[Rfam]
RNA sequence: CCAGCCCCUAGAGGCGUUGCAUCACGACUGCAUGUGUCGUGUGUGUGUCAUUAGGUGGCGGAGAGAAAUGGGCUGUAUCUGCUCUCGGUGUCCCAGACAAGUGGGUGCUCAGAAUGAUUGAUGGCCUGACAAA
Numbered sequence: 001c002c003a004g005c006c007c008c009u010a011g012a013g014g015c016g017u018u019g020c021a022u023c024a025c026g027a028c029u030g031c032a033u034g035u036g037u038c039g040u041g042u043g044u045g046u047g048u049c050a051u052u053a054g055g056u057g058g059c060g061g062a063g064a065g066a067a068a069u070g071g072g073c074u075g076u077a078u079c080u081g082c083u084c085u086c087g088g089u090g091u092c093c094c095a096g097a098c099a100a101g102u103g104g105g106u107g108c109u110c111a112g113a114a115u116g117a118u119u120g121a122u123g124g125c126c127u128g129a130c131a132a133a
Stems, first nucleotide, its partner, number of pairs: 002061001004059003007055005013049003019046004023041006069128008082116001085113002088110001089107005

A member of the RNA family "Small nucleolar RNA SNORA17" from Atractosteus spatula, 133 nucleotides long. For this family Rfam cites "Mapping to nucleotide resolution of pseudouridine residues in large subunit ribosomal RNAs from representative eukaryotes, prokaryotes, archaebacteria, mitochondria and chloroplasts" (Ofengand and Bakin, J Mol Biol, 1997). NCBI's taxonomy places the organism under Eukaryota, Deuterostomia, Vertebrata, Actinopteri, Atractosteus. The match comes from Rfam's covariance-model search (82 bits). The family's consensus secondary structure was predicted with RNAalifold. Clan: SNORA17 clan. snoRNA ACA 17 belongs to the H/ACA family of snoRNAs and is predicted to guide pseudouridylation of the 28S rRNA at positions U4659 and U4598. It shares the same host gene together with ACA43. NB This family has a high threshold value to exclude a large number of closely related sequences that do not appear to have conserved H and ACA boxes, and may be pseudogenes.